MIR396 microRNA precursor family: a 113-nucleotide sequence from Vitis vinifera.

[Rfam]
RNA sequence: UGUCAUGCUUUUCCACAGCUUUCUUGAACUACUUUUCCAUCUACCUGUUUGAUGAUCUUCUUCAUAAGGAGUGUGAAAUAGAAGCUCAAGAAAGCUGUGGGAGGACAUGGCAA
Numbered sequence: 001u002g003u004c005a006u007g008c009u010u011u012u013c014c015a016c017a018g019c020u021u022u023c024u025u026g027a028a029c030u031a032c033u034u035u036u037c038c039a040u041c042u043a044c045c046u047g048u049u050u051g052a053u054g055a056u057c058u059u060c061u062u063c064a065u066a067a068g069g070a071g072u073g074u075g076a077a078a079u080a081g082a083a084g085c086u087c088a089a090g091a092a093a094g095c096u097g098u099g100g101g102a103g104g105a106c107a108u109g110g111c112a113a
Stems, first nucleotide, its partner, number of pairs: 003110005013100003017096006024089004029084002032081002
Description: Lineage of the source: Eukaryota > Streptophytina > Gunneridae > Viteae > Vitis. Pairs were carried over by alignment from the consensus structure, which was predicted with WAR. Gene Ontology terms of the family: RISC complex and miRNA-mediated post-transcriptional gene silencing. Rfam 15.1 lists 744 matches to the family in 207 species. For this family Rfam cites "Computational identification of plant microRNAs and their targets, including a stress-induced miRNA" (Jones-Rhoades and Bartel, Mol Cell, 2004).